[Rfam]
RNA sequence: GGAGGAAGGAAGCAUGGUAGUGUGCACGGAGAAGAACUUUUGGGGUCUGCAUGUCUGCUCGCCCUGACGCCUUCGGGCUUUGAUCUUGCGGGCCUGGAUUUGACCCGCAUUU
Numbered sequence: 001g002g003a004g005g006a007a008g009g010a011a012g013c014a015u016g017g018u019a020g021u022g023u024g025c026a027c028g029g030a031g032a033a034g035a036a037c038u039u040u041u042g043g044g045g046u047c048u049g050c051a052u053g054u055c056u057g058c059u060c061g062c063c064c065u066g067a068c069g070c071c072u073u074c075g076g077g078c079u080u081u082g083a084u085c086u087u088g089c090g091g092g093c094c095u096g097g098a099u100u101u102g103a104c105c106c107g108c109a110u111u112u
Base pairs, nucleotide, nucleotide: 012025013024014023015022043095044094045093046092047091053084054083055082057078058077059076
RNA: Small nucleolar RNA snoR100